This 98-nucleotide sequence from Nocardia mexicana belongs to the Rfam family "azaaromatic riboswitch aptamer (yjdF RNA)". The organism belongs to Nocardia, within Bacteria. Pairs were carried over by alignment from the consensus structure, which is taken from published work.
RNA sequence: GGCCGGACGAGCGAAAACACAGCCCGGUUGGUAGUCCGGGCGGCCGUGCGCGGCUCAGUAACCUCCCUCCCAGGGUGUCCGGCCCGUCCUCUCAUCGC
Numbered sequence: 001g002g003c004c005g006g007a008c009g010a011g012c013g014a015a016a017a018c019a020c021a022g023c024c025c026g027g028u029u030g031g032u033a034g035u036c037c038g039g040g041c042g043g044c045c046g047u048g049c050g051c052g053g054c055u056c057a058g059u060a061a062c063c064u065c066c067c068u069c070c071c072a073g074g075g076u077g078u079c080c081g082g083c084c085c086g087u088c089c090u091c092u093c094a095u096c097g098c
Stems, first nucleotide, its partner, number of pairs: 005089005011083001022041006042055005065075004